[Rfam]
RNA: mir-219 microRNA precursor family
RNA sequence: UCUGCUACAGAUGUCCAGACACAAUUCUUGGUUCGUACGGCUCCAUCGCACAAGAAUUGCGUUUGGACAAUCAGGAGCGGA
Numbered sequence: 001u002c003u004g005c006u007a008c009a010g011a012u013g014u015c016c017a018g019a020c021a022c023a024a025u026u027c028u029u030g031g032u033u034c035g036u037a038c039g040g041c042u043c044c045a046u047c048g049c050a051c052a053a054g055a056a057u058u059g060c061g062u063u064u065g066g067a068c069a070a071u072c073a074g075g076a077g078c079g080g081a
Base pairs, nucleotide, nucleotide: 002080003079004078005077006076010071012069013068014067015066016065017064020061022059023058024057025056026055027054028053029052030051